[Rfam]
Rfam assigns this 95-nucleotide RNA sequence to the family "Rhodo-rpoB RNA". Pairs were carried over by alignment from the consensus structure, which is taken from published work.
RNA sequence: GGGUCGGAGGGCGGCCAGUGGGACGGCCGCCUCGGAUGGACCCCUCGACGUCCGCUCUCAUGGGGGAAGGCGCCGCGGCCCCGGCGGCGCCCGCC
Dot-bracket structure: (((((....(((((((........))))))).......)))))......................(..(((((((.........))))).))..)